Shown here is a 406-nucleotide RNA sequence from Carbonactinospora thermoautotrophica, a member of the family "Bacterial RNase P class A".
[Rfam]
RNA sequence: CGAGCCGGCCGGGCGGCCGCGGCAGGGCCGGAACCCGGCCCCGCCGAGGAAGGUCCGGACUCCACAGGGCAGGGUGGUGGGUAACGCCCACCCGGGGUGACCCGCGGGAAAGUGCCACAGAAAACAGACCGCCUCGGCCCCGUGCCGGGGUAAGGGUGAAACGGUGGUGUAAGAGACCACCAGCGCCCGAGGUGACUCGGGCGGCUCGGUAAACCCCACCCGGAGCAAGGUCAAGAGGGGGCGCCGCACAGGUGCCCCUGCGCGAGCGCUUGAGGGUGGCCCGCCCGAUGCUCGCGGGUAGACCGCUAGAGGCUGCCGGUAACGGCAGUCCCAGAGGGAUGGCCGCCGCCCGGCAGGGGGCAACCCCGCCGGGGCACAGAAUCCGGCCUACAGGCCGACUCGUCCG
Numbered sequence: 001c002g003a004g005c006c007g008g009c010c011g012g013g014c015g016g017c018c019g020c021g022g023c024a025g026g027g028c029c030g031g032a033a034c035c036c037g038g039c040c041c042c043g044c045c046g047a048g049g050a051a052g053g054u055c056c057g058g059a060c061u062c063c064a065c066a067g068g069g070c071a072g073g074g075u076g077g078u079g080g081g082u083a084a085c086g087c088c089c090a091c092c093c094g095g096g097g098u099g100a101c102c103c104g105c106g107g108g109a110a111a112g113u114g115c116c117a118c119a120g121a122a123a124a125c126a127g128a129c130c131g132c133c134u135c136g137g138c139c140c141c142g143u144g145c146c147g148g149g150g151u152a153a154g155g156g157u158g159a160a161a162c163g164g165u166g167g168u169g170u171a172a173g174a175g176a177c178c179a180c181c182a183g184c185g186c187c188c189g190a191g192g193u194g195a196c197u198c199g200g201g202c203g204g205c206u207c208g209g210u211a212a213a214c215c216c217c218a219c220c221c222g223g224a225g226c227a228a229g230g231u232c233a234a235g236a237g238g239g240g241g242c243g244c245c246g247c248a249c250a251g252g253u254g255c256c257c258c259u260g261c262g263c264g265a266g267c268g269c270u271u272g273a274g275g276g277u278g279g280c281c282c283g284c285c286c287g288a289u290g291c292u293c294g295c296g297g298g299u300a301g302a303c304c305g306c307u308a309g310a311g312g313c314u315g316c317c318g319g320u321a322a323c324g325g326c327a328g329u330c331c332c333a334g335a336g337g338g339a340u341g342g343c344c345g346c347c348g349c350c351c352g353g354c355a356g357g358g359g360g361c362a363a364c365c366c367c368g369c370c371g372g373g374g375c376a377c378a379g380a381a382u383c384c385g386g387c388c389u390a391c392a393g394g395c396c397g398a399c400u401c402g403u404c405c406g
Stems, first nucleotide, its partner, number of pairs: 001402004006397005011391001012347007020046004025041004051389003055386005060225004067282004072221005077091005092106001093104004107216002112214002114210003129155002131151008163181006183205001184203008229304004239295001241293001243291002274286004311330008
Ribonuclease P (RNase P) is a ubiquitous endoribonuclease, found in archaea, bacteria and eukarya as well as chloroplasts and mitochondria. A search with the family's covariance model found it, with a score of 267 bits.